Annotation: A member of the RNA family "glmS glucosamine-6-phosphate activated ribozyme aptamer" from Alkalithermobacter paradoxus, 152 nucleotides long. This entry contains a glucosamine-6-phosphate activated ribozyme that is found in the mRNA for GlmS. GlmS is an enzyme that uses fructose-6-phosphate and glutamine to generate glucosamine-6-phosphate. The ribozyme catalyses self cleavage of the glmS mRNA that is thought to regulate GlmS activity. By type it is a riboswitch.

[Rfam]
RNA sequence: UCUAUGCCUAGAGCGCCAGGACUUAAUUUAUAUUAAGUUGACGAGGACAGGGCUUAUCGAAUUAUCGGCGGAUACCCUGCGGUUCACAACCGAGAGAUGUUUAACAAAAUCUAUAAGUGAUUAUAGACACAAAAUAAACAUCAGUGAAUAGA
Numbered sequence: 001u002c003u004a005u006g007c008c009u010a011g012a013g014c015g016c017c018a019g020g021a022c023u024u025a026a027u028u029u030a031u032a033u034u035a036a037g038u039u040g041a042c043g044a045g046g047a048c049a050g051g052g053c054u055u056a057u058c059g060a061a062u063u064a065u066c067g068g069c070g071g072a073u074a075c076c077c078u079g080c081g082g083u084u085c086a087c088a089a090c091c092g093a094g095a096g097a098u099g100u101u102u103a104a105c106a107a108a109a110u111c112u113a114u115a116a117g118u119g120a121u122u123a124u125a126g127a128c129a130c131a132a133a134a135u136a137a138a139c140a141u142c143a144g145u146g147a148a149u150a151g152a
Stems, first nucleotide, its partner, number of pairs: 020039008048079005057068004080092005096142007110127007